This 87-nucleotide RNA sequence belongs to the Rfam family "freshwater-2 RNA". Rfam's curators put it in the seed alignment.
RNA sequence: UAUCACAGCAUUGAUAGGACUUAUGCGGAAUACCACCGCGUACCCAGGAGAACUGGGAUUGGACUCCUAAAGAGGAGAAAACAAAUG
Number, nucleotide and partner (000 for none) at each position: 001u016002a015003u014004c013005a012006c000007a000008g000009c000010a000011u000012u005013g004014a003015u002016a001017g000018g000019a000020c000021u000022u042023a041024u040025g039026c038027g037028g036029a000030a000031u000032a000033c000034c000035a000036c028037c027038g026039c025040g024041u023042a022043c057044c056045c055046a054047g000048g000049a000050g000051a000052a000053c000054u046055g045056g044057g043058a000059u000060u000061g000062g000063a000064c000065u000066c000067c000068u000069a000070a000071a000072g000073a000074g000075g000076a000077g000078a000079a000080a000081a000082c000083a000084a000085a000086u000087g000